RNA: L31-Actinobacteria ribosomal protein leader
RNA sequence: UCGGUUCCGGUUCACGUCGUCGCAUCCGCGCGAGGACGACCCGGGGGCA
Numbered sequence: 001u002c003g004g005u006u007c008c009g010g011u012u013c014a015c016g017u018c019g020u021c022g023c024a025u026c027c028g029c030g031c032g033a034g035g036a037c038g039a040c041c042c043g044g045g046g047g048c049a
Base pairs, nucleotide, nucleotide: 004048005047007044008043009042010041015038016037017036018035020033021032022031023030